[Rfam]
RNA sequence: AGGAGGAACAACCCCAGUGGGGCCAGCUCUGGCAACCUGGAUUCAGCCCCCGCAGGAACUCCGGAGCUCUCAGUCUGCAGGGUCUGGAGGCUCUGGGGCGGG
Numbered sequence: 001a002g003g004a005g006g007a008a009c010a011a012c013c014c015c016a017g018u019g020g021g022g023c024c025a026g027c028u029c030u031g032g033c034a035a036c037c038u039g040g041a042u043u044c045a046g047c048c049c050c051c052g053c054a055g056g057a058a059c060u061c062c063g064g065a066g067c068u069c070u071c072a073g074u075c076u077g078c079a080g081g082g083u084c085u086g087g088a089g090g091c092u093c094u095g096g097g098g099c100g101g102g
Stems, first nucleotide, its partner, number of pairs: 002094004009086002012082003019075001020071003025068008036056004
Dot-bracket structure: .((((...((.(((....((((..((((((((...((((.............))))....)))))))))))...)....)))..))....))))........
RNA: mir-8834 microRNA precursor family
Organism: Vulpes vulpes